[Rfam]
RNA sequence: UUGAAUGUGAAUUGAUUUAUGUUUGGAUACACUCAAUUAAAACUGAUUUUUAUUAGUUGAUAUUGUUUGGAUAG
Numbered sequence: 001u002u003g004a005a006u007g008u009g010a011a012u013u014g015a016u017u018u019a020u021g022u023u024u025g026g027a028u029a030c031a032c033u034c035a036a037u038u039a040a041a042a043c044u045g046a047u048u049u050u051u052a053u054u055a056g057u058u059g060a061u062a063u064u065g066u067u068u069g070g071a072u073a074g
Base pairs, nucleotide, nucleotide: 011061012060013059014058015057016056017055021053022052025049026048027047028046030045031044033042